[Rfam]
RNA sequence: GAUUCAUCGAUCCGAGCGCACAAUAAACUUAAUAUUUAAUAGUUUGUUCGUUCGGCUCGAGUUAUCA
Number, nucleotide and partner (000 for none) at each position: 001g066002a065003u064004u000005c061006a000007u000008c059009g058010a057011u000012c055013c054014g000015a000016g000017c050018g049019c000020a047021c046022a045023a044024u000025a000026a000027a000028c000029u000030u000031a000032a000033u000034a000035u000036u000037u000038a000039a000040u000041a000042g000043u000044u023045u022046g021047u020048u000049c018050g017051u000052u000053c000054g013055g012056c000057u010058c009059g008060a000061g005062u000063u000064a003065u002066c001067a000
Shown here is a 67-nucleotide RNA sequence from Microctonus hyperodae, a member of the family "mir-375 microRNA precursor family". It scores 51 bits against the family's covariance model. Taxonomically the source falls in Microctonus (Eukaryota, Ecdysozoa, Insecta, Eumetabola). Pairs were carried over by alignment from the consensus structure, which was predicted with RNAalifold.